[Rfam]
RNA sequence: UAAUUAUAAAUGAAAAAGAAGCCAUGCUGUAACAUGACUUCCCAAUAGAGCCGUUAAAGACGGUGACUAUACUAUAACGAUGAUAAC
Numbered sequence: 001u002a003a004u005u006a007u008a009a010a011u012g013a014a015a016a017a018g019a020a021g022c023c024a025u026g027c028u029g030u031a032a033c034a035u036g037a038c039u040u041c042c043c044a045a046u047a048g049a050g051c052c053g054u055u056a057a058a059g060a061c062g063g064u065g066a067c068u069a070u071a072c073u074a075u076a077a078c079g080a081u082g083a084u085a086a087c
Base pairs, nucleotide, nucleotide: 023036024035025034026033050064051063052062053061054060055059
The family of this 87-nucleotide RNA sequence from Pediococcus argentinicus is "RNA anti-toxin A". It scores 71 bits against the family's covariance model. A reference for the family is Fozo et al. (2010), "Abundance of type I toxin-antitoxin systems in bacteria: searches for new candidates and discovery of novel families", Nucleic Acids Res.